[Rfam]
RNA sequence: AUUUUGUAUGUGAAAAUUGGAGGGAAUUAAACAAUUAGCAUUUUGAUUUUACUUUCUGUUUAGUUUCCUCCAAUAUUUCAUAUCCAAUCU
Numbered sequence: 001a002u003u004u005u006g007u008a009u010g011u012g013a014a015a016a017u018u019g020g021a022g023g024g025a026a027u028u029a030a031a032c033a034a035u036u037a038g039c040a041u042u043u044u045g046a047u048u049u050u051a052c053u054u055u056c057u058g059u060u061u062a063g064u065u066u067c068c069u070c071c072a073a074u075a076u077u078u079c080a081u082a083u084c085c086a087a088u089c090u
Stems, first nucleotide, its partner, number of pairs: 004087003008083001011080004016074006023067008032058002

This 90-nucleotide sequence from Jatropha curcas belongs to the Rfam family "MIR2275 microRNA precursor family".